[Rfam]
RNA: RNase MRP
Organism: Eutrema salsugineum
RNA sequence: CUGUCAUUGGACGAAGUGAAUGGGUCAAAUGGGCUUGCCUAAGUUCCGACCCAGGAAAGUCCCCGGGCCACUAUUUCGCAGAGAUGCGGCCUCGGCAACGAGAGAAUCAUGCGGUGGAGAGUCCCAAUCAGCUGAGACGCGUGUGUGGAGCUUACGUGGUCUCUCUGCCAAUGAUACCAUGGCCGUUCGUUUCACGACAGUUAUUCACAGGGUUCUUAAUGGACUUAACUGAACGGGGCUUACGUUCCAAUGACA
Numbered sequence: 001c002u003g004u005c006a007u008u009g010g011a012c013g014a015a016g017u018g019a020a021u022g023g024g025u026c027a028a029a030u031g032g033g034c035u036u037g038c039c040u041a042a043g044u045u046c047c048g049a050c051c052c053a054g055g056a057a058a059g060u061c062c063c064c065g066g067g068c069c070a071c072u073a074u075u076u077c078g079c080a081g082a083g084a085u086g087c088g089g090c091c092u093c094g095g096c097a098a099c100g101a102g103a104g105a106a107u108c109a110u111g112c113g114g115u116g117g118a119g120a121g122u123c124c125c126a127a128u129c130a131g132c133u134g135a136g137a138c139g140c141g142u143g144u145g146u147g148g149a150g151c152u153u154a155c156g157u158g159g160u161c162u163c164u165c166u167g168c169c170a171a172u173g174a175u176a177c178c179a180u181g182g183c184c185g186u187u188c189g190u191u192u193c194a195c196g197a198c199a200g201u202u203a204u205u206c207a208c209a210g211g212g213u214u215c216u217u218a219a220u221g222g223a224c225u226u227a228a229c230u231g232a233a234c235g236g237g238g239c240u241u242a243c244g245u246u247c248c249a250a251u252g253a254c255a
Stems, first nucleotide, its partner, number of pairs: 002255010016208004022052004031046006057241003061238004077088004091102004106175003113169009130152003139146002212225001214223003